RNA sequence: GCCUUAAGAGCAUUCGGUGGAUGCCUUGGCGCUGAGAGGCGAUGAAGGACGUGGUACGCUGCGAUAAGUCUCGGGGAGCUGCGAACAAGCUUUGAUCCGAGAAUUUCCGAAUGGGGAAACCCACCCGCAAGGGUAUCCUGCGCUGAAUACAUAGGUUCAGGAAGCUAACCCGGGGAACUGAAACAUCUAAGUACCCGGAGGAAAGGACAUCAACAGAGACUCCGCUAGUAGUGGCGAGCGAACGCGGACCAGGCCAGUGGCAUGAGAGAGACAAUCGGAACCGUCUGGAAAGUCGGGCCAUAGCGGGUGACAGCCCCGUACGAGUAAUGCGAUCUCAUGUCCUCGAGUAAGGCGGGACACGUGAAAUCCUGUCUGAACAUGGGGGGACCACCCUCCAAGCCUAAGUACUCCUCAGCGACCGAUAGUGCACAAGUACCGUGAGGGAAAGGUGAAAAGCACCCCGACAAGGGGAGUGAAAGAGUUCCUGAAACCGGAUGCUUACAAA
Numbered sequence: 001g002c003c004u005u006a007a008g009a010g011c012a013u014u015c016g017g018u019g020g021a022u023g024c025c026u027u028g029g030c031g032c033u034g035a036g037a038g039g040c041g042a043u044g045a046a047g048g049a050c051g052u053g054g055u056a057c058g059c060u061g062c063g064a065u066a067a068g069u070c071u072c073g074g075g076g077a078g079c080u081g082c083g084a085a086c087a088a089g090c091u092u093u094g095a096u097c098c099g100a101g102a103a104u105u106u107c108c109g110a111a112u113g114g115g116g117a118a119a120c121c122c123a124c125c126c127g128c129a130a131g132g133g134u135a136u137c138c139u140g141c142g143c144u145g146a147a148u149a150c151a152u153a154g155g156u157u158c159a160g161g162a163a164g165c166u167a168a169c170c171c172g173g174g175g176a177a178c179u180g181a182a183a184c185a186u187c188u189a190a191g192u193a194c195c196c197g198g199a200g201g202a203a204a205g206g207a208c209a210u211c212a213a214c215a216g217a218g219a220c221u222c223c224g225c226u227a228g229u230a231g232u233g234g235c236g237a238g239c240g241a242a243c244g245c246g247g248a249c250c251a252g253g254c255c256a257g258u259g260g261c262a263u264g265a266g267a268g269a270g271a272c273a274a275u276c277g278g279a280a281c282c283g284u285c286u287g288g289a290a291a292g293u294c295g296g297g298c299c300a301u302a303g304c305g306g307g308u309g310a311c312a313g314c315c316c317c318g319u320a321c322g323a324g325u326a327a328u329g330c331g332a333u334c335u336c337a338u339g340u341c342c343u344c345g346a347g348u349a350a351g352g353c354g355g356g357a358c359a360c361g362u363g364a365a366a367u368c369c370u371g372u373c374u375g376a377a378c379a380u381g382g383g384g385g386g387a388c389c390a391c392c393c394u395c396c397a398a399g400c401c402u403a404a405g406u407a408c409u410c411c412u413c414a415g416c417g418a419c420c421g422a423u424a425g426u427g428c429a430c431a432a433g434u435a436c437c438g439u440g441a442g443g444g445a446a447a448g449g450u451g452a453a454a455a456g457c458a459c460c461c462c463g464a465c466a467a468g469g470g471g472a473g474u475g476a477a478a479g480a481g482u483u484c485c486u487g488a489a490a491c492c493g494g495a496u497g498c499u500u501a502c503a504a505a
Stems, first nucleotide, its partner, number of pairs: 008500010023485001024449002028420002030417007037409002039165002047108003050063003069102007078090003113122003123134004136162005142156003169200001170198005180187002210217002220405001221248005231239002251402004259343002262338005275323003281296003285292001299303001305317003350374008381396005436443002459471004
Dot-bracket structure: .......((((((((((.....(((..(((((((((((((......((((((........))).....(((((((..(((.......))).....)))))))...)))....(((....)))((((....)))).(((((.(((.........))).))))).))...((((((.....((....))......))))).).........((....))..((((((.....((.....))....)))))..((((....((.(((((........(((...(((.(......).)))..(...).(((.......)))...)))..........)))))...))......((((((((.........))))))))......(((((......)))))..))))..)..)).))))))).))...............((....))....)).........((((.....)))).............).....)))))))))).....
RNA: Bacterial large subunit ribosomal RNA, nucleotides 9 to 513
Organism: Prosthecomicrobium pneumaticum